[Rfam]
RNA sequence: CACCAGGUUGAUUCUGCCUGAUAUGUGUGCUAGCGUCAAAGAUUUAGCCAUGCAUGCUUUUCGAACCCUCGUGGGGAGAGGCGGAUAGCUCAGUAAUACAGUUACAACAUAAGCUGCGUGUGUGGAUAACCUUGUUAAGAUAAGGCUAAGACUUAGCGUGUCGCACUUUUGUGAAGAAAGGCGACUUGAGCAGCAUUGGUUUCUGACCUAUCAGUUAGUAUGUUCUGUAAGGGAGAACAUAGACUAUGACGGGUAACGGGGGAUGCACGUCUGAUACCGGAGAGGAAGCCUUAGAGACAGCUUUCACGUCCAAGGAUGGCAGCAGGCGCGAAACUUACCCAAUUGUUUUUUGUGACAGAGGUAGUUAUGACGUAUUCUUUAGAGAGAGACCUUGUUAGACAUGGUCCAUAGCGACUGGAGGGCAAGUCUGGUGCCAGCAGCCGCGGUAAUUCCAGCUCCAGUAGUGCAUAUACAUGCUG
Numbered sequence: 001c002a003c004c005a006g007g008u009u010g011a012u013u014c015u016g017c018c019u020g021a022u023a024u025g026u027g028u029g030c031u032a033g034c035g036u037c038a039a040a041g042a043u044u045u046a047g048c049c050a051u052g053c054a055u056g057c058u059u060u061u062c063g064a065a066c067c068c069u070c071g072u073g074g075g076g077a078g079a080g081g082c083g084g085a086u087a088g089c090u091c092a093g094u095a096a097u098a099c100a101g102u103u104a105c106a107a108c109a110u111a112a113g114c115u116g117c118g119u120g121u122g123u124g125g126a127u128a129a130c131c132u133u134g135u136u137a138a139g140a141u142a143a144g145g146c147u148a149a150g151a152c153u154u155a156g157c158g159u160g161u162c163g164c165a166c167u168u169u170u171g172u173g174a175a176g177a178a179a180g181g182c183g184a185c186u187u188g189a190g191c192a193g194c195a196u197u198g199g200u201u202u203c204u205g206a207c208c209u210a211u212c213a214g215u216u217a218g219u220a221u222g223u224u225c226u227g228u229a230a231g232g233g234a235g236a237a238c239a240u241a242g243a244c245u246a247u248g249a250c251g252g253g254u255a256a257c258g259g260g261g262g263a264u265g266c267a268c269g270u271c272u273g274a275u276a277c278c279g280g281a282g283a284g285g286a287a288g289c290c291u292u293a294g295a296g297a298c299a300g301c302u303u304u305c306a307c308g309u310c311c312a313a314g315g316a317u318g319g320c321a322g323c324a325g326g327c328g329c330g331a332a333a334c335u336u337a338c339c340c341a342a343u344u345g346u347u348u349u350u351u352g353u354g355a356c357a358g359a360g361g362u363a364g365u366u367a368u369g370a371c372g373u374a375u376u377c378u379u380u381a382g383a384g385a386g387a388g389a390c391c392u393u394g395u396u397a398g399a400c401a402u403g404g405u406c407c408a409u410a411g412c413g414a415c416u417g418g419a420g421g422g423c424a425a426g427u428c429u430g431g432u433g434c435c436a437g438c439a440g441c442c443g444c445g446g447u448a449a450u451u452c453c454a455g456c457u458c459c460a461g462u463a464g465u466g467c468a469u470a471u472a473c474a475u476g477c478u479g
Base pairs, nucleotide, nucleotide: 004020005019006018007017008016022472023471024470025469026468027467028466029465030464031463033373034372035371036370037369038368039366040365041329047327048326049325051324052323053322056082057081060080061079062078066074067073089282090281091280099205100204101203104200105199108198109197113194114193115192116191117190119188122154124152130145131144132143133142134141135140207253208252209251214244215243216242219241220240221239222238223237224236225235226234257279258278259277261272262271263270264269284305285304286303287302288301289300307318308317309316310315335363337362338361339360343358344357345356346355347354388406389405390404391403415461416460417459418458419457420456428455429454430453431452437444438443
This 479-nucleotide part of an RNA from Anncaliia algerae belongs to the Rfam family "Microsporidia small subunit ribosomal RNA". The sequence is in the family's curated seed alignment. The family is grouped with related families in Rfam's "SSU clan". The base pairs follow the family's consensus structure, which is taken from published work.